The record is a 154-nucleotide sequence from Roseiarcus fermentans, which matches "6S / SsrS RNA" in Rfam. It scores 67 bits against the family's covariance model. Pairs were carried over by alignment from the consensus structure, which is taken from published work.
RNA sequence: GCGGAGCUGGGUGGCGCGUCAGGACAACAUUCCUCGGGGCCGUACGAUCCCCAUGGGAGCUGUCCCUGCCCUAGCCCGUGGGCUUUGGCACACGGCGCCCACCUACUUACGUAGGCGCCCGGGAUCACCGUCCAACGGCCUUCUCGGCUCCGCG
Numbered sequence: 001g002c003g004g005a006g007c008u009g010g011g012u013g014g015c016g017c018g019u020c021a022g023g024a025c026a027a028c029a030u031u032c033c034u035c036g037g038g039g040c041c042g043u044a045c046g047a048u049c050c051c052c053a054u055g056g057g058a059g060c061u062g063u064c065c066c067u068g069c070c071c072u073a074g075c076c077c078g079u080g081g082g083c084u085u086u087g088g089c090a091c092a093c094g095g096c097g098c099c100c101a102c103c104u105a106c107u108u109a110c111g112u113a114g115g116c117g118c119c120c121g122g123g124a125u126c127a128c129c130g131u132c133c134a135a136c137g138g139c140c141u142u143c144u145c146g147g148c149u150c151c152g153c154g
Stems, first nucleotide, its partner, number of pairs: 002152010013140003017137003031124004036120003039116003055100003059096005068089003073084004